[Rfam]
RNA: Group II catalytic intron D1-D4-2
Organism: Paraburkholderia humisilvae
RNA sequence: UGGCGCCGGCCUCCUGGAGCCCGCUUGCAGGGGCAGGCUUCAAGACGCCAGGCGCAGUUGCGCUCACAAGCGCGGCGGUAAGCGACGAUCCGGAAAAGGCCGUCAGAAUCGUCCUGGC
Numbered sequence: 001u002g003g004c005g006c007c008g009g010c011c012u013c014c015u016g017g018a019g020c021c022c023g024c025u026u027g028c029a030g031g032g033g034c035a036g037g038c039u040u041c042a043a044g045a046c047g048c049c050a051g052g053c054g055c056a057g058u059u060g061c062g063c064u065c066a067c068a069a070g071c072g073c074g075g076c077g078g079u080a081a082g083c084g085a086c087g088a089u090c091c092g093g094a095a096a097a098g099g100c101c102g103u104c105a106g107a108a109u110c111g112u113c114c115u116g117g118c
Stems, first nucleotide, its partner, number of pairs: 002014002005011001016041006023034004046117001048093002051090002054079002057076003061072004098114002101111002